[Rfam]
RNA sequence: ACAAUAUUCGGACCGAUGGUCUACUGAGCAAUAUCUCCCGCUCGGUGGAAGAUCUUCCCUUUGUCGU
Numbered sequence: 001a002c003a004a005u006a007u008u009c010g011g012a013c014c015g016a017u018g019g020u021c022u023a024c025u026g027a028g029c030a031a032u033a034u035c036u037c038c039c040g041c042u043c044g045g046u047g048g049a050a051g052a053u054c055u056u057c058c059c060u061u062u063g064u065c066g067u
Stems, first nucleotide, its partner, number of pairs: 004064003010058003015053001017051001020049010
Source information
A member of the RNA family "mir-2774 microRNA precursor family" from Bombyx mori, 67 nucleotides long. For this family Rfam cites "MicroRNAs of Bombyx mori identified by Solexa sequencing" (Liu et al., BMC Genomics, 2010). Rfam links the family to the GO terms RISC complex and miRNA-mediated post-transcriptional gene silencing. The family's consensus secondary structure was predicted with RNAalifold.